[Rfam]
RNA: mir-9/mir-79 microRNA precursor family
Organism: Ladona fulva
RNA sequence: UUUGUCUUUUCUUUGGUGAUGUAGCUGUAUGAUUGCUUUCAAAGGAUUAUAAAGCUUGAUUACCAAAGCAAAGAACAU
Numbered sequence: 001u002u003u004g005u006c007u008u009u010u011c012u013u014u015g016g017u018g019a020u021g022u023a024g025c026u027g028u029a030u031g032a033u034u035g036c037u038u039u040c041a042a043a044g045g046a047u048u049a050u051a052a053a054g055c056u057u058g059a060u061u062a063c064c065a066a067a068g069c070a071a072a073g074a075a076c077a078u
Base pairs, nucleotide, nucleotide: 002077005074007072008071009070011068012067013066014065015064016063017062018061019060020059023056024055025054026053028051029050030049031048032047033046